[Rfam]
RNA sequence: GGCAAUAUGAUGAGAAACUUCACUCUGAAUUUAUAGUUGUUGAAUUCAUAUUUAGUACCUUCAAAGUUCUCUGAUUGCU
Numbered sequence: 001g002g003c004a005a006u007a008u009g010a011u012g013a014g015a016a017a018c019u020u021c022a023c024u025c026u027g028a029a030u031u032u033a034u035a036g037u038u039g040u041u042g043a044a045u046u047c048a049u050a051u052u053u054a055g056u057a058c059c060u061u062c063a064a065a066g067u068u069c070u071c072u073g074a075u076u077g078c079u
Stems, first nucleotide, its partner, number of pairs: 001079005
Shown here is a 79-nucleotide RNA sequence from Helianthus annuus, a member of the family "Small nucleolar RNA R160". Rfam classes the family as a C/D-box small nucleolar RNA. A search with the family's covariance model found it, with a score of 61 bits. snoR160 is a C/D box small nucleolar RNA, which acts as a methylation guide for 25S ribosomal RNA in plants. snoR160 has been alternatively named snoZ270 in rice. The pairing is the family consensus, mapped onto this sequence. Rfam 15.1 lists 799 matches to the family in 221 species. The source organism's lineage runs through Eukaryota, Spermatophyta, Magnoliopsida, campanulids and Helianthus. For this family Rfam cites "The high diversity of snoRNAs in plants: identification and comparative study of 120 snoRNA genes from Oryza sativa" (Chen et al., Nucleic Acids Res, 2003).